Record summary:
The record is a 101-nucleotide RNA from Alligator mississippiensis, which matches "Small nucleolar RNA SNORD10" in Rfam. A reference for the family is Huttenhofer et al. (2001), "RNomics: an experimental approach that identifies 201 candidates for novel, small, non-messenger RNAs in mouse", EMBO J. A search with the family's covariance model found it, with a score of 43 bits. Pairs were carried over by alignment from the consensus structure, which was predicted with WAR.
RNA sequence: AUGCAUUGAUGAUCCCCCAUGCGUGUCAUCUGAUGCUCCCUACCCUUCCCUUCGGGGAGGGUGGGUCCUAGCACUGAUCACACCUUUUCCAUACUGAGAAU
Numbered sequence: 001a002u003g004c005a006u007u008g009a010u011g012a013u014c015c016c017c018c019a020u021g022c023g024u025g026u027c028a029u030c031u032g033a034u035g036c037u038c039c040c041u042a043c044c045c046u047u048c049c050c051u052u053c054g055g056g057g058a059g060g061g062u063g064g065g066u067c068c069u070a071g072c073a074c075u076g077a078u079c080a081c082a083c084c085u086u087u088u089c090c091a092u093a094c095u096g097a098g099a100a101u
Stems, first nucleotide, its partner, number of pairs: 001101002004098001043061008